Background
The record is a 52-nucleotide RNA sequence from Canis lupus, which matches "mir-374 microRNA precursor family" in Rfam. Taxonomically the source falls in Canis lupus (Eukaryota, Bilateria, Euteleostomi, Eutheria).
[Rfam]
RNA sequence: AUAUAAUACAACCUGCUAAGUGUCCUAGCACUUAUCAGGUUGUAUUAUCAUU
Number, nucleotide and partner (000 for none) at each position: 001a000002u000003a048004u047005a046006a045007u044008a043009c042010a041011a040012c000013c038014u037015g036016c000017u034018a033019a032020g031021u030022g029023u028024c000025c000026u000027a000028g023029c022030a021031c020032u019033u018034a017035u000036c015037a014038g013039g000040u011041u010042g009043u008044a007045u006046u005047a004048u003049c000050a000051u000052u000